Shown here is an 84-nucleotide RNA sequence from Brevibacillus sp. SYP-B805, a member of the family "c-di-GMP-I riboswitch aptamer". Pairs were carried over by alignment from the consensus structure, which is taken from published work.

[Rfam]
RNA sequence: UUCUGAAAAAGGCAAACUUGUUCGAAAGACAAGGACGCAAAGCCACGGGCCUAAGGCGAAUGCUAUGGCAGCCGGGUUGCCGGG
Numbered sequence: 001u002u003c004u005g006a007a008a009a010a011g012g013c014a015a016a017c018u019u020g021u022u023c024g025a026a027a028g029a030c031a032a033g034g035a036c037g038c039a040a041a042g043c044c045a046c047g048g049g050c051c052u053a054a055g056g057c058g059a060a061u062g063c064u065a066u067g068g069c070a071g072c073c074g075g076g077u078u079g080c081c082g083g084g
Base pairs, nucleotide, nucleotide: 012038013037017033018032019031020030022029023028041078042077043076044075046074047073048072049069050068051067056063057062